[Rfam]
Shown here is a 160-nucleotide RNA from filamentous cyanobacterium CCP5, a member of the family "Guanidine-I riboswitch aptamer". The source organism's lineage runs through Bacteria, Bacillati and Cyanobacteriota. Rfam links the family to the GO term regulation of gene expression.

RNA sequence: AUGGAAAGCUUCUAGGGUUCCGGCUUGUUGGCCUGUCUUUGUUGACAGGGUUGAGCGUCUGGUCCGAGAGAAGCGGGUCAUCGGUUGGUAGUGGGUCACAGCCAUUGUGGGUCACAGCUAUUGAUCGUUGGCUACACGGCGGGAAAAAAGCCCGGGAGGA
Numbered sequence: 001a002u003g004g005a006a007a008g009c010u011u012c013u014a015g016g017g018u019u020c021c022g023g024c025u026u027g028u029u030g031g032c033c034u035g036u037c038u039u040u041g042u043u044g045a046c047a048g049g050g051u052u053g054a055g056c057g058u059c060u061g062g063u064c065c066g067a068g069a070g071a072a073g074c075g076g077g078u079c080a081u082c083g084g085u086u087g088g089u090a091g092u093g094g095g096u097c098a099c100a101g102c103c104a105u106u107g108u109g110g111g112u113c114a115c116a117g118c119u120a121u122u123g124a125u126c127g128u129u130g131g132c133u134a135c136a137c138g139g140c141g142g143g144a145a146a147a148a149a150g151c152c153c154g155g156g157a158g159g160a
Stems, first nucleotide, its partner, number of pairs: 008074005015065002020062002022059001023056005076133005082127011135155001137158001141153003